The family of this 144-nucleotide RNA sequence from Echinops telfairi is "Small nucleolar RNA SNORA48". By type it is an H/ACA-box small nucleolar RNA. The family's consensus secondary structure was predicted with RNAalifold. A reference for the family is Ofengand and Bakin (1997), "Mapping to nucleotide resolution of pseudouridine residues in large subunit ribosomal RNAs from representative eukaryotes, prokaryotes, archaebacteria, mitochondria and chloroplasts", J Mol Biol. Taxonomically the source falls in Echinops (Eukaryota, Sarcopterygii, Tetrapoda, Tenrecinae). About the family: The snoRNA ACA 48 has been identified to guide pseudouridylation of the residue U3797 in the 28S rRNA subunit.
[Rfam]
RNA sequence: AGCCCCUGGCUAUGGGCAAAGAGACACCUGACUGGUGGUGGUGCUCUUAUAUCAGUCAGGGGCAAAGCAGACUGGCAGCCCUUUGUUCAUCCUAGCUUGAUGCCUAGAUCGUGGCCAGAGCUGUUUCAUGCCUAGGGCACAUAA
Number, nucleotide and partner (000 for none) at each position: 001a000002g063003c062004c061005c060006c059007u058008g057009g000010c000011u000012a000013u054014g053015g052016g000017c000018a000019a048020a047021g046022a000023g042024a000025c040026a039027c038028c037029u000030g000031a000032c000033u000034g000035g000036u000037g028038g027039u026040g025041g000042u023043g000044c000045u000046c021047u020048u019049a000050u000051a000052u015053c014054a013055g000056u000057c008058a007059g006060g005061g004062g003063c002064a000065a000066a000067g000068c000069a000070g000071a000072c000073u000074g000075g000076c000077a000078g000079c000080c000081c000082u000083u000084u139085g138086u137087u136088c135089a000090u000091c000092c000093u000094a000095g000096c000097u000098u000099g132100a000101u130102g000103c000104c000105u128106a000107g126108a000109u000110c123111g122112u000113g000114g000115c000116c000117a000118g000119a000120g000121c000122u111123g110124u000125u000126u107127c000128a105129u000130g101131c000132c099133u000134a000135g088136g087137g086138c085139a084140c000141a000142u000143a000144a000